[Rfam]
RNA sequence: CCUCCCGCUUCUCCUCCCUGAGCGGGGCCUAUCGUGGCAUAAGCGAUAAGGCGUUACUGCCCUGGAGAUCUUCCCCUUUCUCCAGGGUUUUUUUU
Numbered sequence: 001c002c003u004c005c006c007g008c009u010u011c012u013c014c015u016c017c018c019u020g021a022g023c024g025g026g027g028c029c030u031a032u033c034g035u036g037g038c039a040u041a042a043g044c045g046a047u048a049a050g051g052c053g054u055u056a057c058u059g060c061c062c063u064g065g066a067g068a069u070c071u072u073c074c075c076c077u078u079u080c081u082c083c084a085g086g087g088u089u090u091u092u093u094u095u
Stems, first nucleotide, its partner, number of pairs: 004026006027052004032046003060087008
Dot-bracket structure: ...((((((...........))))))((((.(((.........)))..)))).......((((((((............))))))))........
RNA: Burkholderia RNA 7 (anti-hemB)